[Rfam]
RNA: mir-548 microRNA precursor family
Organism: Aotus nancymaae
RNA sequence: UAUUAAGUUGGUGCAAAAGUAAUUGUGGUUUUUGCAAGUACAAGUAAUGGCAAAAACCACAAUUACUUUUGCACCAACCUAAUA
Number, nucleotide and partner (000 for none) at each position: 001u084002a083003u082004u081005a080006a000007g078008u077009u076010g075011g074012u073013g072014c071015a070016a069017a068018a067019g066020u065021a064022a063023u062024u061025g060026u059027g058028g057029u056030u055031u054032u053033u052034g051035c050036a000037a048038g000039u046040a045041c000042a000043a000044g000045u040046a039047a000048u037049g000050g035051c034052a033053a032054a031055a030056a029057c028058c027059a026060c025061a024062a023063u022064u021065a020066c019067u018068u017069u016070u015071g014072c013073a012074c011075c010076a009077a008078c007079c000080u005081a004082a003083u002084a001